Rfam assigns this 133-nucleotide RNA from Podarcis muralis to the family "Small Cajal body specific RNA 11". scaRNAs are a specific class of small nuclear RNAs which localise to the Cajal bodies and guide the modification of RNA polymerase II transcribed spliceosomal RNAs U1, U2, U4, U5 and U12. ACA57 belongs to the H/ACA box class of guide RNAs as it has the predicted hairpin-hinge-hairpin-tail structure, conserved H/ACA-box motifs and is found associated with GAR1. ACA57 is predicted to guide the pseudouridylation of the U5 spliceosomal RNA at position U43. Gene Ontology terms of the family: RNA processing, Cajal body and nucleolus. On this family, see Darzacq et al., EMBO J 2002: "Cajal body-specific small nuclear RNAs: a novel class of 2'-O-methylation and pseudouridylation guide RNAs".

[Rfam]
RNA sequence: CCGUCCAGCCUUCAGUGCUGCUCCUCUUUCCAGCUGUGACAGAGGACUUGGGGCGGACGUAGAUCAAACCAACUCUUAAUUUAGGAGGGCUUCCUGGAGCUAAGGCUAGCCCUCAAAGGCACAAGAGGACAUU
Numbered sequence: 001c002c003g004u005c006c007a008g009c010c011u012u013c014a015g016u017g018c019u020g021c022u023c024c025u026c027u028u029u030c031c032a033g034c035u036g037u038g039a040c041a042g043a044g045g046a047c048u049u050g051g052g053g054c055g056g057a058c059g060u061a062g063a064u065c066a067a068a069c070c071a072a073c074u075c076u077u078a079a080u081u082u083a084g085g086a087g088g089g090c091u092u093c094c095u096g097g098a099g100c101u102a103a104g105g106c107u108a109g110c111c112c113u114c115a116a117a118g119g120c121a122c123a124a125g126a127g128g129a130c131a132u133u
Base pairs, nucleotide, nucleotide: 002059003058004057005056006055010052011051020048022046024044025043026042027041029039073127074126075125076124077123080119081118082117085114086113087112088111089110090109091108093105094104095103097101